[Rfam]
RNA: glmS glucosamine-6-phosphate activated ribozyme aptamer
Organism: Clostridium sp. 7_2_43FAA
RNA sequence: AAGAAUAGAAAAGCGCCAGAGCUAUUUGUUAUCUUUAAUAGGGCAAAUAGCUGACGAGGUUGGGGAGUAUCGAUACUUCGGCGGGUGCCCCACGGUAUUGCACACUACCGUUAACAGCUAAUAAAACUGUGAAGUGAUUUGCAGGACAAGAUUAGCUUGGUGUUAAAG
Numbered sequence: 001a002a003g004a005a006u007a008g009a010a011a012a013g014c015g016c017c018a019g020a021g022c023u024a025u026u027u028g029u030u031a032u033c034u035u036u037a038a039u040a041g042g043g044c045a046a047a048u049a050g051c052u053g054a055c056g057a058g059g060u061u062g063g064g065g066a067g068u069a070u071c072g073a074u075a076c077u078u079c080g081g082c083g084g085g086u087g088c089c090c091c092a093c094g095g096u097a098u099u100g101c102a103c104a105c106u107a108c109c110g111u112u113a114a115c116a117g118c119u120a121a122u123a124a125a126a127c128u129g130u131g132a133a134g135u136g137a138u139u140u141g142c143a144g145g146a147c148a149a150g151a152u153u154a155g156c157u158u159g160g161u162g163u164u165a166a167a168g
Base pairs, nucleotide, nucleotide: 020052021051022050023049024048025047026046027045029043061092062091063090064089065088070081071080072079073078093110094109095108096107097106116157117156118155119154120153127144128143129142130141131140132139133138